[Rfam]
RNA sequence: CGAUAGCAAGUUCCUUUGGUGUCGACGAGUCACCGGCAUCAAAUUUUCUGCUAUCGGAAAGAAAAAUCGGAUCACUUCACCCAGCGCUACGCUGAGAAGAUUCACUCUUCCGCACAUCUCGUAGCUGUUGGUUUUGCAGAUCCGCACAUAC
Numbered sequence: 001c002g003a004u005a006g007c008a009a010g011u012u013c014c015u016u017u018g019g020u021g022u023c024g025a026c027g028a029g030u031c032a033c034c035g036g037c038a039u040c041a042a043a044u045u046u047u048c049u050g051c052u053a054u055c056g057g058a059a060a061g062a063a064a065a066a067u068c069g070g071a072u073c074a075c076u077u078c079a080c081c082c083a084g085c086g087c088u089a090c091g092c093u094g095a096g097a098a099g100a101u102u103c104a105c106u107c108u109u110c111c112g113c114a115c116a117u118c119u120c121g122u123a124g125c126u127g128u129u130g131g132u133u134u135u136g137c138a139g140a141u142c143c144g145c146a147c148a149u150a151c
Base pairs, nucleotide, nucleotide: 001056002055003054004053005052006051007050008049015043016042017041018040019039021037022036023035024034069143070142071141072140073139081131082130083129084128085127086125087124088123089122090121096110097109098108099107
Dot-bracket structure: ((((((((......(((((.((((.........)))).))))).....))))))))............(((((.......((((((((((.....((((.......))))..........))))).))))).......)))))........